RNA sequence: GGUAACGACGGUUACGUCGGGAGUGACUGAAUAAACUUACUGGCAUAUAGCUAGUUAAGGUGAUGAGACACAGGUGGUGCUGCUACGAAAGUAGAAUCGAUUUACCAAUCGGGUCUCAGGCAAGAAUGUUUUUACUCUGUAGUAAUGCCCAUUCUUUGUUGGUAUACAGGAUUCCAACCUCCCUCUAU
Numbered sequence: 001g002g003u004a005a006c007g008a009c010g011g012u013u014a015c016g017u018c019g020g021g022a023g024u025g026a027c028u029g030a031a032u033a034a035a036c037u038u039a040c041u042g043g044c045a046u047a048u049a050g051c052u053a054g055u056u057a058a059g060g061u062g063a064u065g066a067g068a069c070a071c072a073g074g075u076g077g078u079g080c081u082g083c084u085a086c087g088a089a090a091g092u093a094g095a096a097u098c099g100a101u102u103u104a105c106c107a108a109u110c111g112g113g114u115c116u117c118a119g120g121c122a123a124g125a126a127u128g129u130u131u132u133u134a135c136u137c138u139g140u141a142g143u144a145a146u147g148c149c150c151a152u153u154c155u156u157u158g159u160u161g162g163u164a165u166a167c168a169g170g171a172u173u174c175c176a177a178c179c180u181c182c183c184u185c186u187a188u
Base pairs, nucleotide, nucleotide: 002015003014004013005012006011019183020182021181022180023179026061027060039055040054041053042052043051044050064118065117066116067115068114069113071082072081073080075107076106077105078104083094084093085092086091097112098111099110100109101108122156123155124154125153126152127151128150132145133144134143135142137169138168139167140166158178159177160176161175162174

The family of this 188-nucleotide RNA sequence from Galenevirus mbcm1 is "manA RNA". Pairs were carried over by alignment from the consensus structure, which is taken from published work. From the family's description: manA RNA has been located in 5'UTR regions of genes of mannose or fructose metabolism. The source organism's lineage runs through Viruses, Duplodnaviria, Caudoviricetes, Kyanoviridae and Galenevirus mbcm1. Rfam classes the family as a cis-regulatory element.